[Rfam]
RNA: mir-375 microRNA precursor family
RNA sequence: GAUUCAUCGGGCCCAACGUUCAACAAACUUUGAAUUACUAUUUGAUUGAGUUUGUUCGUUCGGCUCGAGUUACCA
Dot-bracket structure: (.(.(..((((((...((....((((.((...................)).)))).))...)))))).)..).).